[Rfam]
RNA sequence: UUGCUGUGCAGAGGGAGAGACUGGCCACGCGCCAGCGCCGAAGGAGCAACCGCCCCGGAAACUCUCAGGCAAAAGGACCCUGCACAGUAA
Numbered sequence: 001u002u003g004c005u006g007u008g009c010a011g012a013g014g015g016a017g018a019g020a021c022u023g024g025c026c027a028c029g030c031g032c033c034a035g036c037g038c039c040g041a042a043g044g045a046g047c048a049a050c051c052g053c054c055c056c057g058g059a060a061a062c063u064c065u066c067a068g069g070c071a072a073a074a075g076g077a078c079c080c081u082g083c084a085c086a087g088u089a090a
Stems, first nucleotide, its partner, number of pairs: 006085006013079002021035004037070003040066002044064003050058002
This 90-nucleotide sequence from Acetobacter orientalis belongs to the Rfam family "Glycine riboswitch aptamer".
The organism belongs to Acetobacter, within Bacteria.
A search with the family's covariance model found it, with a score of 64 bits.
Its family is annotated with glycine biosynthetic process in the Gene Ontology.